[Rfam]
RNA sequence: CGUAAGCUUUAGGGGUGCUGAUUUUUAAAAUUGGCUGAGAUAAAACCCUUUGAACCUGAUCCGGUUAAUACCCGCGAAGGAAAAAGUGUUAUCUACAUA
Numbered sequence: 001c002g003u004a005a006g007c008u009u010u011a012g013g014g015g016u017g018c019u020g021a022u023u024u025u026u027a028a029a030a031u032u033g034g035c036u037g038a039g040a041u042a043a044a045a046c047c048c049u050u051u052g053a054a055c056c057u058g059a060u061c062c063g064g065u066u067a068a069u070a071c072c073c074g075c076g077a078a079g080g081a082a083a084a085a086g087u088g089u090u091a092u093c094u095a096c097a098u099a
Base pairs, nucleotide, nucleotide: 006087007086008085009084010083011049012048013047014046016043017035018034019033020032021031022030023029055080056079057078061074063072064071
RNA: TPP riboswitch aptamer (THI element)